A member of the RNA family "Lysine riboswitch aptamer" from Alkalibaculum bacchi, 174 nucleotides long. The organism belongs to Alkalibaculum, within Bacteria. Pairs were carried over by alignment from the consensus structure, which is taken from published work. Gene Ontology term of the family: lysine biosynthetic process.

[Rfam]
RNA sequence: CUUAACGAUAGAGGCGCAUUUUUUAAUAGUACUGCUCAUGAUGAUAUCAGGAUCAACUGAAUGAACAGGAAAGGAGAAAAUGCCGAAGUGAUUUUUUACCUGAAUAAAAAAUUUGCUGGGAUUAUUGUGAAUAACAAUAAUACUGCCGUCAAACGAUGGAGAGCUAUCUGUAAU
Numbered sequence: 001c002u003u004a005a006c007g008a009u010a011g012a013g014g015c016g017c018a019u020u021u022u023u024u025a026a027u028a029g030u031a032c033u034g035c036u037c038a039u040g041a042u043g044a045u046a047u048c049a050g051g052a053u054c055a056a057c058u059g060a061a062u063g064a065a066c067a068g069g070a071a072a073g074g075a076g077a078a079a080a081u082g083c084c085g086a087a088g089u090g091a092u093u094u095u096u097u098a099c100c101u102g103a104a105u106a107a108a109a110a111a112u113u114u115g116c117u118g119g120g121a122u123u124a125u126u127g128u129g130a131a132u133a134a135c136a137a138u139a140a141u142a143c144u145g146c147c148g149u150c151a152a153a154c155g156a157u158g159g160a161g162a163g164c165u166a167u168c169u170g171u172a173a174u
Stems, first nucleotide, its partner, number of pairs: 007168005016083009032068003036064004087117005093111005118144002121141008146159005

Annotation:
It scores 119 bits against the family's covariance model.